[Rfam]
RNA sequence: CCCUCCGAAACAUGUCGUAGCAUGACCUGACCCGAGGUCGUUGGUGGAGUAGAGCACUGAUUGGGGAAUCCGGGGAAGAAAUUCUUCGCUCUUCUGUCAAACUCCAAACCCACCCACACCGUAGACGGUCGGAGUCCGCACUGCUGGGGUAAGCUUGUAGUGCGUAAGGGAGACAACCCUGCCCGUGGUUAAGGUCCCCAAGUGUCGGCUAAGUGUAAACACUAAAGGGCGUCCCAAGCCCAAAACAGCUGGAAGGUUAGCUUAGAAGCAGCUAUCCUUUAAAGAGUUCGUAACAGACCACCAGUCGAGGUUUGGGGCCCCGAAAAUUGACGGGGCUCAAGCCGACCACCGAUACCACGGAGUACCGUAUAGGUAAUCUCGUAGGAGGGCGUUGCGUUCGGGCAGAAGCAGGGCUGUGAAGUCCUGUGGACCGUUCGCAAACGAAAAU
Numbered sequence: 001c002c003c004u005c006c007g008a009a010a011c012a013u014g015u016c017g018u019a020g021c022a023u024g025a026c027c028u029g030a031c032c033c034g035a036g037g038u039c040g041u042u043g044g045u046g047g048a049g050u051a052g053a054g055c056a057c058u059g060a061u062u063g064g065g066g067a068a069u070c071c072g073g074g075g076a077a078g079a080a081a082u083u084c085u086u087c088g089c090u091c092u093u094c095u096g097u098c099a100a101a102c103u104c105c106a107a108a109c110c111c112a113c114c115c116a117c118a119c120c121g122u123a124g125a126c127g128g129u130c131g132g133a134g135u136c137c138g139c140a141c142u143g144c145u146g147g148g149g150u151a152a153g154c155u156u157g158u159a160g161u162g163c164g165u166a167a168g169g170g171a172g173a174c175a176a177c178c179c180u181g182c183c184c185g186u187g188g189u190u191a192a193g194g195u196c197c198c199c200a201a202g203u204g205u206c207g208g209c210u211a212a213g214u215g216u217a218a219a220c221a222c223u224a225a226a227g228g229g230c231g232u233c234c235c236a237a238g239c240c241c242a243a244a245a246c247a248g249c250u251g252g253a254a255g256g257u258u259a260g261c262u263u264a265g266a267a268g269c270a271g272c273u274a275u276c277c278u279u280u281a282a283a284g285a286g287u288u289c290g291u292a293a294c295a296g297a298c299c300a301c302c303a304g305u306c307g308a309g310g311u312u313u314g315g316g317g318c319c320c321c322g323a324a325a326a327u328u329g330a331c332g333g334g335g336c337u338c339a340a341g342c343c344g345a346c347c348a349c350c351g352a353u354a355c356c357a358c359g360g361a362g363u364a365c366c367g368u369a370u371a372g373g374u375a376a377u378c379u380c381g382u383a384g385g386a387g388g389g390c391g392u393u394g395c396g397u398u399c400g401g402g403c404a405g406a407a408g409c410a411g412g413g414c415u416g417u418g419a420a421g422u423c424c425u426g427u428g429g430a431c432c433g434u435u436c437g438c439a440a441a442c443g444a445a446a447a448u
Stems, first nucleotide, its partner, number of pairs: 001389006011024005026134001027132006036120003040117002043114005052105001053103002059098003063094005072087006138163007146156002168179003183360007193350003202347001204346006227321003231318010248305005254278003259273003279283001284299001288297002361379002363375004390443001392440005399433003408427008